[Rfam]
RNA sequence: CUUGUAGCACUAAAGUGCUUAUAGUGCAGGCAAUGUUUAGUCGUCUACUGCAUUAUGAGCACUUCAAGUCCUGCAAG
Numbered sequence: 001c002u003u004g005u006a007g008c009a010c011u012a013a014a015g016u017g018c019u020u021a022u023a024g025u026g027c028a029g030g031c032a033a034u035g036u037u038u039a040g041u042c043g044u045c046u047a048c049u050g051c052a053u054u055a056u057g058a059g060c061a062c063u064u065c066a067a068g069u070c071c072u073g074c075a076a077g
Stems, first nucleotide, its partner, number of pairs: 004074004009069003013064015029049002032046001
Rfam assigns this 77-nucleotide sequence from Ornithorhynchus anatinus to the family "mir-17 microRNA precursor family". A search with the family's covariance model found it, with a score of 64 bits. Pairs were carried over by alignment from the consensus structure, which was predicted with RNAalifold. Rfam's curators write: This family represents the microRNA (miRNA) precursor mir-17, family, which includes mir-20, mir-91, and mir-103. miRNAs are transcribed as ~70nt precursors (modelled here) and subsequently processed by the Dicer enzyme to give a ~22nt product. The source organism's lineage runs through Eukaryota, Gnathostomata, Euteleostomi, Sarcopterygii and Ornithorhynchus.